[Rfam]
RNA sequence: GGGCACCUACGGGGGCCUAUCACAUCAGGAUCGGGGCGCAUGCCUUCGGUCCGCCAAGCAAACGGAAGAAGCUA
Numbered sequence: 001g002g003g004c005a006c007c008u009a010c011g012g013g014g015g016c017c018u019a020u021c022a023c024a025u026c027a028g029g030a031u032c033g034g035g036g037c038g039c040a041u042g043c044c045u046u047c048g049g050u051c052c053g054c055c056a057a058g059c060a061a062a063c064g065g066a067a068g069a070a071g072c073u074a
Stems, first nucleotide, its partner, number of pairs: 001018004006014003028052009